[Rfam]
FMN riboswitch aptamer (RFN element): a 129-nucleotide RNA sequence from Cereibacter changlensis.
It scores 118 bits against the family's covariance model.

RNA sequence: CACUGUUCUCAGGGCGGGGCGCAAUUCCCCACCGGCGGUGACAGCCCGCGAGCGCCUGCCGAUGGCAGGGUCAGCAGAUCCGGUGGAACUCCGGGGCCGACGGUAUAGUCCGGAUGGAAGAGAACGGCC
Numbered sequence: 001c002a003c004u005g006u007u008c009u010c011a012g013g014g015c016g017g018g019g020c021g022c023a024a025u026u027c028c029c030c031a032c033c034g035g036c037g038g039u040g041a042c043a044g045c046c047c048g049c050g051a052g053c054g055c056c057u058g059c060c061g062a063u064g065g066c067a068g069g070g071u072c073a074g075c076a077g078a079u080c081c082g083g084u085g086g087a088a089c090u091c092c093g094g095g096g097c098c099g100a101c102g103g104u105a106u107a108g109u110c111c112g113g114a115u116g117g118a119a120g121a122g123a124a125c126g127g128c129c
Base pairs, nucleotide, nucleotide: 003127004126005125006124007123008122009121010120017029018028019027031109032108033099034098035049036048037047038046044097045096052075053074079095080094081093082092083091101112102111103110

Pairs were carried over by alignment from the consensus structure, which is taken from published work.